[Rfam]
RNA sequence: AAUAAGUUGUAGGGGGACCGGUGUUGCCGGUUGAGACUGCAUCCGCUAAGAUGCUGACCCUUGGAACCUGAUCUGGCUGAAACCAGCGUAGGGACACAACAAACCGUUUAUC
Numbered sequence: 001a002a003u004a005a006g007u008u009g010u011a012g013g014g015g016g017a018c019c020g021g022u023g024u025u026g027c028c029g030g031u032u033g034a035g036a037c038u039g040c041a042u043c044c045g046c047u048a049a050g051a052u053g054c055u056g057a058c059c060c061u062u063g064g065a066a067c068c069u070g071a072u073c074u075g076g077c078u079g080a081a082a083c084c085a086g087c088g089u090a091g092g093g094a095c096a097c098a099a100c101a102a103a104c105c106g107u108u109u110a111u112c
Base pairs, nucleotide, nucleotide: 006100007099008098009097010096011061012060013059014058016055017031018030019029020028021027039054040053041052042051067092068091069090070089073086074085075084076083